RNA: Glycine riboswitch aptamer
Organism: Alpinimonas psychrophila
RNA sequence: UUGCACGAUGCGGGAGAGUUCGCGUUAGCGAACACCGAAGGAGCAAUCCUCCCCGACAAUCUCUCAGGUACUCGUACCGCAUCGAACAG
Numbered sequence: 001u002u003g004c005a006c007g008a009u010g011c012g013g014g015a016g017a018g019u020u021c022g023c024g025u026u027a028g029c030g031a032a033c034a035c036c037g038a039a040g041g042a043g044c045a046a047u048c049c050u051c052c053c054c055g056a057c058a059a060u061c062u063c064u065c066a067g068g069u070a071c072u073c074g075u076a077c078c079g080c081a082u083c084g085a086a087c088a089g
Stems, first nucleotide, its partner, number of pairs: 006084008019032004034069003037065002041063003047056002